[Rfam]
RNA sequence: AAAAGGAGCAAUAACGCCCCCUUGAUAAAACAAGAAGUGGGUUAUUGCUCCUUUUUUU
Numbered sequence: 001a002a003a004a005g006g007a008g009c010a011a012u013a014a015c016g017c018c019c020c021c022u023u024g025a026u027a028a029a030a031c032a033a034g035a036a037g038u039g040g041g042u043u044a045u046u047g048c049u050c051c052u053u054u055u056u057u058u
Stems, first nucleotide, its partner, number of pairs: 002054014019037001021034004